Record summary:
A member of the RNA family "MIR2593 microRNA precursor family" from Medicago truncatula, 115 nucleotides long.

[Rfam]
RNA sequence: UUACAAGAAACAUUUGAUUUUUUAGAUUCAUUGAGUAAUUGAUGUAUUCGGUCUAAAAUAUAGACUAAAUACAUCAAUUAUUCAAUGAAUCAAAAAAGUCAAAUGUUUCUUGUAA
Number, nucleotide and partner (000 for none) at each position: 001u000002u114003a113004c112005a111006a110007g109008a000009a107010a106011c105012a104013u103014u000015u101016g100017a099018u098019u097020u096021u095022u094023u093024a000025g091026a000027u089028u088029c087030a086031u085032u084033g083034a082035g081036u080037a079038a078039u077040u076041g075042a074043u073044g072045u000046a000047u000048u000049c000050g066051g065052u064053c000054u000055a000056a000057a000058a000059u000060a000061u000062a000063g000064a052065c051066u050067a000068a000069a000070u000071a000072c044073a043074u042075c041076a040077a039078u038079u037080a036081u035082u034083c033084a032085a031086u030087g029088a028089a027090u000091c025092a000093a023094a022095a021096a020097a019098g018099u017100c016101a015102a000103a013104u012105g011106u010107u009108u000109c007110u006111u005112g004113u003114a002115a000